[Rfam]
Annotation:
purD RNA motif: a 129-nucleotide RNA from Campylobacter curvus. Taxonomically the source falls in Campylobacter curvus (Bacteria, Pseudomonadati, Campylobacterales, Campylobacteraceae). Rfam links the family to the GO term regulation of gene expression.
RNA sequence: GUACAGGUGCUAUGCGAUGUGAUUUCGUUUGAGUGCGAAAGUGCGAGAGAUUGCAACCUUGAGGCGCUUGUCUAUUUGCAAGAUUGGCUUUGUUUACGGGCCACUCUUUUAUGCGACGCUCACUUGGGU
Dot-bracket structure: ..((.(((((.......((((.((((......((((....))))..)))).))))........))))).)).............((((((.......))))))..........................